[Rfam]
RNA sequence: GCGGAUGGCUGGAUGGCCGCGGGGGCCUGCCCCCGAGGAAAGUCCGGACUCCACGGAGCAACGGUGCCGGGUAAUGCCCGGCGGGGGCAACCCCAGGGAAAGCGCCACAGAGAACAGACCGCCACCGGGUUCGCCCGGCGGCAAGGGUGAAACGGUGGGGCAAGAGCCCACCGCGGGACUGGUAACAGGACCGGCACGGCAAGCCCCACCGGGAGCAAUGCCGAAUAGGGAUCCCGCGCCGCGCUUGCGGCAGGGCGGCUUCGGCCCAGGGGUCCGGGUUGGCAGCACGAGCGGGUCGGCAACGGCACGCCCAGAGGAAUGGUCAUCCAGCCCCGGAUCACGGUCCGGGGUGGACAGAAUCCGGCUUACAGGCCAUCCGCGCAU
Dot-bracket structure: ((((((((((((((((((.((((((....))))))....[[[.[[[[[((((.....[...((((((((((.....)))))(((((....)))).)((...(((((............(((((.(((((....))))).)))..)).......((((((.......))))))((((..(((....)))..))).)..)))..)))))))))))))...((((......((((((..................((((....]..))))..)))))).....))))......(((.((((....)))).)))..........)))))))................................]]]]]]]].).))))))))))....
RNA: Bacterial RNase P class A